Shown here is a 133-nucleotide sequence from Ursus maritimus, a member of the family "Small nucleolar RNA SNORA41". ACA41 is a member of the H/ACA class of snoRNA that guide the sites of modification of uridines to pseudouridines.
[Rfam]
RNA sequence: UGCCACAGCUACUAGUCUCUAGCUGUCCUUAUGGUAGCAGUUGUGGCAUUCCACUGUGGGAAAGAAACCAUUAUGCGAUGAAACACCUCUUUCUUAGCAAAAUAGAAGUUGGGCAUAUGUGUGAUGAACAGAA
Number, nucleotide and partner (000 for none) at each position: 001u000002g000003c059004c058005a057006c056007a000008g000009c000010u000011a000012c000013u000014a000015g000016u000017c046018u045019c000020u043021a042022g041023c040024u039025g038026u000027c000028c000029u000030u000031a000032u000033g000034g000035u000036a000037g000038c025039a024040g023041u022042u021043g020044u000045g018046g017047c000048a000049u000050u000051c000052c000053a000054c000055u000056g006057u005058g004059g003060g000061a000062a000063a000064g000065a000066a000067a000068c000069c000070a000071u000072u000073a122074u121075g120076c119077g118078a000079u000080g000081a000082a000083a000084c000085a000086c113087c112088u111089c000090u108091u107092u106093c105094u104095u000096a000097g000098c000099a000100a000101a000102a000103u000104a094105g093106a092107a091108g090109u000110u000111g088112g087113g086114c000115a000116u000117a000118u077119g076120u075121g074122u073123g000124a000125u000126g000127a000128a000129c000130a000131g000132a000133a000

The family has 31 seed sequences and 676 matches in Rfam 15.1. For this family Rfam cites "RNomics: an experimental approach that identifies 201 candidates for novel, small, non-messenger RNAs in mouse" (Huttenhofer et al., EMBO J, 2001). A search with the family's covariance model found it, with a score of 112 bits. The family's consensus secondary structure was predicted with PFOLD.